RNA sequence: ACAGUACAAACUGAGCAGGCCGGGGCAGUGCCCUUGGAGCCGGGUCGCAUUGCGACAGUGGAUUUUGCACAUCCGCGGGACAGUA
Numbered sequence: 001a002c003a004g005u006a007c008a009a010a011c012u013g014a015g016c017a018g019g020c021c022g023g024g025g026c027a028g029u030g031c032c033c034u035u036g037g038a039g040c041c042g043g044g045u046c047g048c049a050u051u052g053c054g055a056c057a058g059u060g061g062a063u064u065u066u067g068c069a070c071a072u073c074c075g076c077g078g079g080a081c082a083g084u085a
Stems, first nucleotide, its partner, number of pairs: 010084004016079001018041003022035004026030001044056005058076006
RNA: NiCo (Nickel/Cobalt) riboswitch aptamer